A member of the RNA family "TPP riboswitch aptamer (THI element)" from Microbacterium sp. Root53, 97 nucleotides long.
RNA sequence: CGCAGUGGCACGGGGUGUCCCCACCGGGGGACUGAGAUCACACCCGUAUCGACCUGAUCUCGUUAGUACGAGCGGAGGGAUGUCGCUGAUGAGUGAC
Numbered sequence: 001c002g003c004a005g006u007g008g009c010a011c012g013g014g015g016u017g018u019c020c021c022c023a024c025c026g027g028g029g030g031a032c033u034g035a036g037a038u039c040a041c042a043c044c045c046g047u048a049u050c051g052a053c054c055u056g057a058u059c060u061c062g063u064u065a066g067u068a069c070g071a072g073c074g075g076a077g078g079g080a081u082g083u084c085g086c087u088g089a090u091g092a093g094u095g096a097c
Base pairs, nucleotide, nucleotide: 006085007084008083009082010081011046012045013044014043016040017032018031019030020029021028053078054077055076059072060071061070062069